The record is an 86-nucleotide RNA from Leptolyngbyaceae cyanobacterium M65_K2018_010, which matches "Fluoride riboswitch aptamer (crcB RNA motif)" in Rfam.

RNA sequence: AGUAAAGAAGGCGAUGGAGCUCGCCGAAAACGCCCGCUGGAGGUCAGAACUUGGCUAAUCCUAGGGCUGAUGGCUCCUACUGUUCC
Numbered sequence: 001a002g003u004a005a006a007g008a009a010g011g012c013g014a015u016g017g018a019g020c021u022c023g024c025c026g027a028a029a030a031c032g033c034c035c036g037c038u039g040g041a042g043g044u045c046a047g048a049a050c051u052u053g054g055c056u057a058a059u060c061c062u063a064g065g066g067c068u069g070a071u072g073g074c075u076c077c078u079a080c081u082g083u084u085c086c
Stems, first nucleotide, its partner, number of pairs: 010025004016077006032067004
Its family is annotated with response to fluoride and positive regulation of gene expression in the Gene Ontology.